Shown here is a 69-nucleotide sequence from Methyloprofundus sedimenti, a member of the family "int-alpA RNA". The family has 167 seed sequences and 577 matches in Rfam 15.1. The match comes from Rfam's covariance-model search (43 bits).

[Rfam]
RNA sequence: CACCAGUCUAGGCCAUGCAAGCCGAAAGGCGGACUCGUUCCCCGCUUGACUGGUAACCCUUCUGGAACG
Numbered sequence: 001c002a003c004c005a006g007u008c009u010a011g012g013c014c015a016u017g018c019a020a021g022c023c024g025a026a027a028g029g030c031g032g033a034c035u036c037g038u039u040c041c042c043c044g045c046u047u048g049a050c051u052g053g054u055a056a057c058c059c060u061u062c063u064g065g066a067a068c069g
Stems, first nucleotide, its partner, number of pairs: 002054007011023003029045004036069005
The family's RNA type in Rfam is small RNA.